RNA sequence: GUGGCUGCCGGCUGGGUGCUUUCUACUGGUGCUGUGCAGGGGCUUUCCCUAAAGCUGCUGUGAACCUGUAGGGUUUCCCCCUAGGCUACGGAGCUGG
Numbered sequence: 001g002u003g004g005c006u007g008c009c010g011g012c013u014g015g016g017u018g019c020u021u022u023c024u025a026c027u028g029g030u031g032c033u034g035u036g037c038a039g040g041g042g043c044u045u046u047c048c049c050u051a052a053a054g055c056u057g058c059u060g061u062g063a064a065c066c067u068g069u070a071g072g073g074u075u076u077c078c079c080c081c082u083a084g085g086c087u088a089c090g091g092a093g094c095u096g097g
Base pairs, nucleotide, nucleotide: 002096003095004094005093006092007086008085009084010082011081014080015079016078018076021073022072023071024070025069026068028067029066031065033063036061037060038059039058041056042055043054044053045052046051
A member of the RNA family "mir-9058 microRNA precursor family" from Equus asinus, 97 nucleotides long. NCBI's taxonomy places the organism under Eukaryota, Eumetazoa, Deuterostomia, Euteleostomi, Equus. The match comes from Rfam's covariance-model search (90 bits). Gene Ontology terms of the family: RISC complex and miRNA-mediated post-transcriptional gene silencing. The family has 2 seed sequences and 2,090 matches in Rfam 15.1.